The family of this 56-nucleotide RNA sequence from Takifugu flavidus is "Antizyme RNA frameshifting stimulation element". This family represents a structural element which is found in antizyme mRNA and is known to promote frameshifting. Antizyme genes have have two partially overlapping open reading frames, the second, which encodes the functional protein requires +1 translational frameshifting. This frameshift is stimulated by a pseudoknot present 3' of the frameshift site in the antizyme mRNA. The frameshifting efficiency is dependent on the level of polyamines in the cell, when the polyamine concentration is high frameshifting is more likely to occur which leads to an increase in the quantity of functional antizyme produced. The functional antizyme acts to reduce ornithine decarboxylase (ODC) activity which leads to a drop in polyamines present in the cell. Therefore, this family can be thought of as a biosensor for intracellular free polyamines. Pairs were carried over by alignment from the consensus structure, which is taken from published work. It scores 68 bits against the family's covariance model. Lineage of the source: Eukaryota > Vertebrata > Eupercaria > Tetraodontiformes > Takifugu.
[Rfam]
RNA sequence: UGAUGCCCCUCACCCACAACUGAAGAUCCCGGGUGGGCGAGGGACAGUCAGGGAUC
Numbered sequence: 001u002g003a004u005g006c007c008c009c010u011c012a013c014c015c016a017c018a019a020c021u022g023a024a025g026a027u028c029c030c031g032g033g034u035g036g037g038c039g040a041g042g043g044a045c046a047g048u049c050a051g052g053g054a055u056c
Base pairs, nucleotide, nucleotide: 007043008042009041010040011039013037014036015035016034017033025056026055027054028053029052030051